About this RNA: The record is a 103-nucleotide RNA from Heyndrickxia sporothermodurans, which matches "Purine riboswitch aptamer" in Rfam. A search with the family's covariance model found it, with a score of 85 bits. Lineage of the source: Bacteria > Bacillati > Bacillota > Caryophanales > Heyndrickxia.
RNA sequence: UAUAAAUUAAAUAGUAAACAUCGUAUAAUUUCGGGGAUAUGGCCUGAUAAGUUUCUACCAAGCUGCCGUAAAUAGCUUGACUACGAGGUUGUGAGAUAUAGGU
Numbered sequence: 001u002a003u004a005a006a007u008u009a010a011a012u013a014g015u016a017a018a019c020a021u022c023g024u025a026u027a028a029u030u031u032c033g034g035g036g037a038u039a040u041g042g043c044c045u046g047a048u049a050a051g052u053u054u055c056u057a058c059c060a061a062g063c064u065g066c067c068g069u070a071a072a073u074a075g076c077u078u079g080a081c082u083a084c085g086a087g088g089u090u091g092u093g094a095g096a097u098a099u100a101g102g103u
Stems, first nucleotide, its partner, number of pairs: 018089002021086005029049001031047005059079007
Overview: On this family, see Mandal et al., Cell 2003: "Riboswitches Control Fundamental Biochemical Pathways in Bacillus subtilis and Other Bacteria". The base pairs follow the family's consensus structure, which is taken from published work.